[Rfam]
Nucleotides: 079
Base pairs, nucleotide, nucleotide: 008018009017010016011015041064042063043062044061045060046059047058048057049056
Number, partner (000 for none) and nucleotide at each position: 001000a002000g003000a004000c005000g006000g007000u008018g009017c010016c011015u012000u013000u014000c015011a016010g017009g018008c019000a020000u021000c022000c023000u024000c025000u026000c027000c028000u029000a030000a031000a032000a033000a034000c035000u036000u037000u038000c039000a040000c041064g042063a043062g044061c045060c046059g047058u048057g049056u050000c051000g052000u053000c054000c055000g056049a057048c058047g059046c060045g061044g062043c063042u064041c065000u066000u067000u068000u069000u070000u071000u072000g073000c074000g075000u076000c077000c078000a079000c